mir-263 microRNA precursor family: an 84-nucleotide RNA sequence from Megaselia scalaris. Clan: mir-182 clan.
RNA sequence: CUUGCACAGUUAAUGGCACUGGAAGAAUUCACGGGUUCUUUGAUUUACCUUCCCGUGAUCUCUUAGUGGCAUCACUGGUGUAAU
Numbered sequence: 001c002u003u004g005c006a007c008a009g010u011u012a013a014u015g016g017c018a019c020u021g022g023a024a025g026a027a028u029u030c031a032c033g034g035g036u037u038c039u040u041u042g043a044u045u046u047a048c049c050u051u052c053c054c055g056u057g058a059u060c061u062c063u064u065a066g067u068g069g070c071a072u073c074a075c076u077g078g079u080g081u082a083a084u
Base pairs, nucleotide, nucleotide: 003082004081005080006079007078009076013072014071015070017068018067020065021064022063023061025060026059029058030057031056032055033054034053

Background
Gene Ontology terms of the family: RISC complex and miRNA-mediated post-transcriptional gene silencing. The organism belongs to Megaselia, within Eukaryota.